[Rfam]
RNA sequence: GGAUCGAGUGACCCGCGGUGGGACGCAGGUCGAGCAUGGAUCUGAUGAAUUGCCGUCUCGGAUGGAGGCGCGGCCGGUGCCCGACGGCCCGCACC
Numbered sequence: 001g002g003a004u005c006g007a008g009u010g011a012c013c014c015g016c017g018g019u020g021g022g023a024c025g026c027a028g029g030u031c032g033a034g035c036a037u038g039g040a041u042c043u044g045a046u047g048a049a050u051u052g053c054c055g056u057c058u059c060g061g062a063u064g065g066a067g068g069c070g071c072g073g074c075c076g077g078u079g080c081c082c083g084a085c086g087g088c089c090c091g092c093a094c095c
Stems, first nucleotide, its partner, number of pairs: 001043005010031004015026003067095002070092002072089005
The record is a 95-nucleotide sequence from Citreicella sp. C3M06, which matches "Rhodo-rpoB RNA" in Rfam. It scores 71 bits against the family's covariance model. It is annotated as a cis-regulatory element.